[Rfam]
RNA sequence: ACACGUUGCUGCUCAGGUACUUAGUGACUCUCAAUUCAACAUUGUAUUGCACGCCUUUGAGGGUCGCUCUGUGCCUGUGUUGCACGUGU
Numbered sequence: 001a002c003a004c005g006u007u008g009c010u011g012c013u014c015a016g017g018u019a020c021u022u023a024g025u026g027a028c029u030c031u032c033a034a035u036u037c038a039a040c041a042u043u044g045u046a047u048u049g050c051a052c053g054c055c056u057u058u059g060a061g062g063g064u065c066g067c068u069c070u071g072u073g074c075c076u077g078u079g080u081u082g083c084a085c086g087u088g089u
Stems, first nucleotide, its partner, number of pairs: 001089005009082001011080002014077007023068011
RNA: mir-306 microRNA precursor family